RNA sequence: GGUUUCCAUUGGUGCAAAUCCAAUCACCUCAAUUUGAGAUGAGAAUCAAUCCCCCAUUGGUAGCAAAUGGUUAUCCAUUAAGCGGAGGAUA
Numbered sequence: 001g002g003u004u005u006c007c008a009u010u011g012g013u014g015c016a017a018a019u020c021c022a023a024u025c026a027c028c029u030c031a032a033u034u035u036g037a038g039a040u041g042a043g044a045a046u047c048a049a050u051c052c053c054c055c056a057u058u059g060g061u062a063g064c065a066a067a068u069g070g071u072u073a074u075c076c077a078u079u080a081a082g083c084g085g086a087g088g089a090u091a
Base pairs, nucleotide, nucleotide: 009023010022011021012020052087054085055084056078057077059075060074061073062072063071064070
Notes:
Shown here is a 91-nucleotide RNA sequence from Helonias koreana, a member of the family "Plastid-rps12 3UTR RNA". On this family, see Richter et al., Plant Commun 2023: "Retrograde signaling in plants: A critical review focusing on the GUN pathway and beyond". It is annotated as a cis-regulatory element.